[Rfam]
RNA: SAM riboswitch aptamer (S box leader)
Organism: Promicromonospora citrea
RNA sequence: ACCCCAUCCAGAGCGGUCGAGAGUCCUGGCUCCAUGACACCGCAGCAACCUGCCGACCGGCCGAGGGACGCAAGGUGCUCACGCCAGGUUCGAUGGAGC
Number, nucleotide and partner (000 for none) at each position: 001a000002c098003c000004c096005c095006a094007u093008c092009c000010a000011g000012a000013g043014c042015g041016g040017u039018c000019g000020a000021g032022a031023g030024u000025c000026c087027u086028g085029g084030c023031u022032c021033c000034a000035u000036g000037a000038c000039a017040c016041c015042g014043c013044a079045g078046c077047a076048a000049c075050c074051u072052g071053c070054c000055g000056a000057c000058c000059g000060g000061c000062c000063g000064a000065g000066g000067g000068a000069c000070g053071c052072a051073a000074g050075g049076u047077g046078c045079u044080c000081a000082c000083g091084c029085c028086a027087g026088g000089u000090u000091c083092g008093a007094u006095g005096g004097a000098g002099c000